[Rfam]
RNA sequence: UCAGUGUUGUAGAGCUGCUUGCAAGGUACCGAAUUGUUUGAUUUCAUUCUCAAUUGGUCCCCUCCAAGUAGCUCCAUAGCAUUGA
Numbered sequence: 001u002c003a004g005u006g007u008u009g010u011a012g013a014g015c016u017g018c019u020u021g022c023a024a025g026g027u028a029c030c031g032a033a034u035u036g037u038u039u040g041a042u043u044u045c046a047u048u049c050u051c052a053a054u055u056g057g058u059c060c061c062c063u064c065c066a067a068g069u070a071g072c073u074c075c076a077u078a079g080c081a082u083u084g085a
Base pairs, nucleotide, nucleotide: 012074013073014072015071016070017069018068019067020066021065025061026060028058029057030056032055033054034053035052036051
Notes: This 85-nucleotide RNA belongs to the Rfam family "mir-245 microRNA precursor family". Rfam links the family to the GO terms miRNA-mediated post-transcriptional gene silencing and RISC complex. The base pairs follow the family's consensus structure, which was predicted with RNAalifold.